[Rfam]
This 113-nucleotide RNA from Flavonifractor sp. An10 belongs to the Rfam family "STnc490 Hfq binding RNA".
Nucleotides: 113
Base pairs, nucleotide, nucleotide: 002022003021004020005019006018007017008016009015010014028042031039032038033037062113063112064111065110066109067108068107069106070105071101079098080097081096082095083094084093085092
Number, partner (000 for none) and nucleotide at each position: 001000a002022a003021c004020c005019a006018c007017u008016c009015g010014c011000u012000a013000g014010g015009c016008g017007a018006g019005u020004g021003g022002u023000a024000c025000a026000a027000a028042a029000a030000a031039g032038c033037c034000u035000a036000u037033g038032g039031c040000g041000a042028u043000a044000a045000a046000g047000a048000a049000g050000a051000u052000a053000g054000a055000a056000a057000a058000a059000c060000u061000c062113c063112c064111u065110u066109u067108g068107c069106u070105a071101u072000a073000a074000u075000g076000a077000a078000a079098g080097u081096g082095c083094g084093g085092u086000c087000u088000g089000c090000c091000a092085a093084c094083u095082g096081c097080a098079c099000a100000a101071a102000g103000a104000a105070u106069a107068g108067c109066a110065a111064a112063g113062g
It is annotated as a small RNA. Rfam 15.1 lists 285 matches to the family in 122 species. Lineage of the source: Bacteria > Bacillota > Clostridia > Oscillospiraceae > Flavonifractor.